[Rfam]
RNA sequence: GACAGAGGGAGCCCGACUCCCGUGCCUCUGGCAUGAGGAAAGUCCCCCCACCGGCCGGACAGGCGACCGGGCACACGCCCGGAGUCGGAGACGGCUGGCUCUGGAACAGCAACGACACCCCCCACCCCGACCCGUGAUUCGCGCGAUCGCUUCGGCGAUCGCGGCGGCCGCGGGAUCACCCGCGACCGCGCGAACCGACCCGCAAGGGAAGGGAGUUAACCCGAUGAGGAUCGACGGGUGGGAACGGAUGGAACGGCGAAUCCUCGCCGGUGCAAGUCCGCGCCACAAGGUAGUCCGGCCACGGCGCGGACGCUUAGCCGAAUGUCGGGAUGAACCGAAGGGGGCUUACUCCCCUCAGUC
Numbered sequence: 001g002a003c004a005g006a007g008g009g010a011g012c013c014c015g016a017c018u019c020c021c022g023u024g025c026c027u028c029u030g031g032c033a034u035g036a037g038g039a040a041a042g043u044c045c046c047c048c049c050a051c052c053g054g055c056c057g058g059a060c061a062g063g064c065g066a067c068c069g070g071g072c073a074c075a076c077g078c079c080c081g082g083a084g085u086c087g088g089a090g091a092c093g094g095c096u097g098g099c100u101c102u103g104g105a106a107c108a109g110c111a112a113c114g115a116c117a118c119c120c121c122c123c124a125c126c127c128c129g130a131c132c133c134g135u136g137a138u139u140c141g142c143g144c145g146a147u148c149g150c151u152u153c154g155g156c157g158a159u160c161g162c163g164g165c166g167g168c169c170g171c172g173g174g175a176u177c178a179c180c181c182g183c184g185a186c187c188g189c190g191c192g193a194a195c196c197g198a199c200c201c202g203c204a205a206g207g208g209a210a211g212g213g214a215g216u217u218a219a220c221c222c223g224a225u226g227a228g229g230a231u232c233g234a235c236g237g238g239u240g241g242g243a244a245c246g247g248a249u250g251g252a253a254c255g256g257c258g259a260a261u262c263c264u265c266g267c268c269g270g271u272g273c274a275a276g277u278c279c280g281c282g283c284c285a286c287a288a289g290g291u292a293g294u295c296c297g298g299c300c301a302c303g304g305c306g307c308g309g310a311c312g313c314u315u316a317g318c319c320g321a322a323u324g325u326c327g328g329g330a331u332g333a334a335c336c337g338a339a340g341g342g343g344g345c346u347u348a349c350u351c352c353c354c355u356c357a358g359u360c
Stems, first nucleotide, its partner, number of pairs: 001360003005356005010350002012329006021035005040347003044344005049272004054299006062268005067082005083096005097263002102259001104257001118247002121242007139214002276311009
The family of this 360-nucleotide RNA sequence from Halorubrum lacusprofundi is "Archaeal RNase P". About the family: Ribonuclease P (RNase P) is a ubiquitous endoribonuclease, found in archaea, bacteria and eukarya as well as chloroplasts and mitochondria. Its best characterised activity is the generation of mature 5'-ends of tRNAs by cleaving the 5'-leader elements of precursor-tRNAs. Cellular RNase Ps are ribonucleoproteins. Its Rfam clan is "RNaseP clan".